[Rfam]
A member of the RNA family "mir-2788 microRNA precursor family" from Tenebrio molitor, 96 nucleotides long. The base pairs follow the family's consensus structure, which was predicted with RNAalifold. Rfam 15.1 lists 89 matches to the family in 88 species. NCBI's taxonomy places the organism under Eukaryota, Metazoa, Eumetazoa, Arthropoda, Tenebrio.
RNA sequence: UGCUUUGGUUGAUGCAAUUUUGGGGUUUCUUAGCGGCAUUUGCCUGUAACACUAUUGCAAUGCCCUUGGAAAUCCCAAACAUGCAUGACGAAUCUA
Numbered sequence: 001u002g003c004u005u006u007g008g009u010u011g012a013u014g015c016a017a018u019u020u021u022g023g024g025g026u027u028u029c030u031u032a033g034c035g036g037c038a039u040u041u042g043c044c045u046g047u048a049a050c051a052c053u054a055u056u057g058c059a060a061u062g063c064c065c066u067u068g069g070a071a072a073u074c075c076c077a078a079a080c081a082u083g084c085a086u087g088a089c090g091a092a093u094c095u096a
Stems, first nucleotide, its partner, number of pairs: 009091003013087001014084003021077009032066002035064005041059003